RNA: Flavobacterium-1 RNA
RNA sequence: GUACACCAGCGUCCAAAUCUUGCCUUUGGCAUUUCCCUGUACGUUAGCGAUAAUGGGCAACCUAGCAAUGUGUGUACCACCUGUGGCGUCAGAGUUCCCUGAUCAGGAUGGCGCCUGGGU
Numbered sequence: 001g002u003a004c005a006c007c008a009g010c011g012u013c014c015a016a017a018u019c020u021u022g023c024c025u026u027u028g029g030c031a032u033u034u035c036c037c038u039g040u041a042c043g044u045u046a047g048c049g050a051u052a053a054u055g056g057g058c059a060a061c062c063u064a065g066c067a068a069u070g071u072g073u074g075u076a077c078c079a080c081c082u083g084u085g086g087c088g089u090c091a092g093a094g095u096u097c098c099c100u101g102a103u104c105a106g107g108a109u110g111g112c113g114c115c116u117g118g119g120u
Base pairs, nucleotide, nucleotide: 001077002076003075004074005073006072007070008069009044010043011042012041014039015038021031022030023029024028047066048065055062056061080119081118082117083116085115086114087113088112089111090110091109098107099106100105